[Rfam]
Shown here is a 93-nucleotide RNA from Sesamum indicum, a member of the family "small nucleolar RNA snoR117". The family's RNA type in Rfam is C/D-box small nucleolar RNA. The source organism's lineage runs through Eukaryota, Euphyllophyta, Magnoliopsida, asterids and Sesamum. A search with the family's covariance model found it, with a score of 54 bits. Its family is annotated with RNA processing and nucleolus in the Gene Ontology. For this family Rfam cites "Mining small RNA sequencing data: a new approach to identify small nucleolar RNAs in Arabidopsis" (Chen and Wu, Nucleic Acids Res, 2009).
RNA sequence: GGCCAGUGAUGCUUAGAGAAUUGUCCGUACCAUCUGAGUGUCAUUUUCCGAUGAUCUCUUUGAUGUUACUUCCUCUUCAAUCUUCUGAGGUCU
Dot-bracket structure: ((((....................................................................................)))).